[Rfam]
Rfam assigns this 116-nucleotide RNA from Streptococcus varani to the family "PyrR binding site". NCBI's taxonomy places the organism under Bacteria, Bacillota, Bacilli, Lactobacillales, Streptococcus. Rfam classes the family as a cis-regulatory element.
RNA sequence: UAAUCCUUUAAGAAUUGUCCUGUGAGGCAAGCAAGGAGUAUCAUGUAGAGAUGGGGCGACUUUUUUGUUGUACCUAGAUUUUCUGAAACCUCCUUGGUAAGGAGGUUUUUUUCUGU
Numbered sequence: 001u002a003a004u005c006c007u008u009u010a011a012g013a014a015u016u017g018u019c020c021u022g023u024g025a026g027g028c029a030a031g032c033a034a035g036g037a038g039u040a041u042c043a044u045g046u047a048g049a050g051a052u053g054g055g056g057c058g059a060c061u062u063u064u065u066u067g068u069u070g071u072a073c074c075u076a077g078a079u080u081u082u083c084u085g086a087a088a089c090c091u092c093c094u095u096g097g098u099a100a101g102g103a104g105g106u107u108u109u110u111u112u113c114u115g116u
Stems, first nucleotide, its partner, number of pairs: 004037005015030005048080002052076004056071005085109011